[Rfam]
Small nucleolar RNA SNORA15: a 134-nucleotide RNA sequence from Bucco capensis. NCBI's taxonomy places the organism under Eukaryota, Opisthokonta, Eumetazoa, Coelurosauria, Bucco. The match comes from Rfam's covariance-model search (67 bits).
RNA sequence: GCAUGGAUGAAUUCUGCACUAGCUUUUCUCAGUAGCUAAUGCAGUCAGACACUAUGCCAGAAUGAAUUCCUUGUUCACACUGACUGGUAUGCUUUUCAUAUGGGAAAGGGCAUGCCUUUGGAAGUGGGAUACAG
Numbered sequence: 001g002c003a004u005g006g007a008u009g010a011a012u013u014c015u016g017c018a019c020u021a022g023c024u025u026u027u028c029u030c031a032g033u034a035g036c037u038a039a040u041g042c043a044g045u046c047a048g049a050c051a052c053u054a055u056g057c058c059a060g061a062a063u064g065a066a067u068u069c070c071u072u073g074u075u076c077a078c079a080c081u082g083a084c085u086g087g088u089a090u091g092c093u094u095u096u097c098a099u100a101u102g103g104g105a106a107a108g109g110g111c112a113u114g115c116c117u118u119u120g121g122a123a124g125u126g127g128g129a130u131a132c133a134g
Base pairs, nucleotide, nucleotide: 001057002056003055004054005053006052014044015043016042017041018040069128070127071124072123074122075121076120077119086116087115088114089113090112091111092110093109094108
Background
About the family: ACA15 is a member of the H/ACA class of snoRNA that guide the sites of modification of uridines to pseudouridines.